The record is a 102-nucleotide RNA sequence from Paenibacillaceae bacterium GAS479, which matches "Glycine riboswitch aptamer" in Rfam. Taxonomically the source falls in Paenibacillaceae (Bacteria, Bacillati, Bacillota, Bacilli).
[Rfam]
Nucleotides: 102
Stems, first nucleotide, its partner, number of pairs: 006097005012091002020038004040082003043078002047076003053069005
Number, partner (000 for none) and nucleotide at each position: 001000a002000u003000g004000a005000a006097c007096g008095c009094a010093g011000c012091g013090g014000g015000a016000g017000a018000g019000a020038c021037u022036g023035c024000c025000g026000g027000u028000u029000a030000u031000u032000a033000a034000g035023g036022c037021g038020g039000c040082g041081c042080c043078g044077a045000a046000g047076g048075a049074g050000u051000a052000a053069c054068c055067u056066u057065g058000a059000u060000g061000g062000g063000c064000u065057c066056a067055a068054g069053g070000g071000a072000a073000u074049c075048u076047c077044u078043c079000a080042g081041g082040c083000a084000a085000a086000a087000g088000g089000a090013c091012c092000u093010u094009u095008g096007c097006g098000g099000g100000a101000c102000g